[Rfam]
Nucleotides: 107
Base pairs, nucleotide, nucleotide: 003100004099005098006097007096008095015032016031017030018029034087035086036085037083038082041081042080043079047073048072049071050070
Number, partner (000 for none) and nucleotide at each position: 001000a002000a003100c004099a005098u006097c007096u008095g009000g010000a011000g012000a013000g014000u015032g016031g017030c018029g019000c020000g021000c022000g023000g024000u025000a026000c027000g028000g029018c030017g031016c032015c033000c034087a035086c036085c037083g038082a039000a040000g041081g042080g043079g044000a045000u046000c047073c048072c049071u050070g051000g052000c053000g054000c055000g056000u057000u058000u059000g060000c061000a062000g063000c064000g065000g066000c067000g068000c069000a070050c071049g072048g073047g074000u075000g076000a077000a078000g079043c080042u081041c082038u083037c084000a085036g086035g087034u088000a089000a090000a091000u092000g093000g094000a095008c096007a097006g098005a099004u100003g101000g102000g103000g104000u105000u106000g107000c
Source information
Glycine riboswitch aptamer: a 107-nucleotide sequence from Bordetella bronchiseptica. Taxonomically the source falls in Bordetella (Bacteria, Pseudomonadota, Betaproteobacteria, Burkholderiales). Rfam's curators write: This family represents the bacterial glycine riboswitch.